[Rfam]
RNA sequence: GGUCAUUCCUCCUUUUAAAACACGGGAAGCGAUUCCCGGCCUGUUCACUCAGAGGAAGCCCAUCAUGGCACUGAGCGUUGAAGAAAAAGCGCAGAUCGUUAACGAAUACAAGCAAGCUGAA
Numbered sequence: 001g002g003u004c005a006u007u008c009c010u011c012c013u014u015u016u017a018a019a020a021c022a023c024g025g026g027a028a029g030c031g032a033u034u035c036c037c038g039g040c041c042u043g044u045u046c047a048c049u050c051a052g053a054g055g056a057a058g059c060c061c062a063u064c065a066u067g068g069c070a071c072u073g074a075g076c077g078u079u080g081a082a083g084a085a086a087a088a089g090c091g092c093a094g095a096u097c098g099u100u101a102a103c104g105a106a107u108a109c110a111a112g113c114a115a116g117c118u119g120a121a
Stems, first nucleotide, its partner, number of pairs: 007027004048075005054069001

The family of this 121-nucleotide sequence from Pseudomonas aeruginosa is "Ribosomal S15 leader".
It scores 53 bits against the family's covariance model.
Gene Ontology term of the family: regulation of translation, ncRNA-mediated.
The E. coli Ribosomal S15 gene 5' UTR can form two alternative structures. One that is a series of three hairpins, The other includes a pseudoknot.
Its Rfam clan is "Ribosomal Protein S15 Leader clan".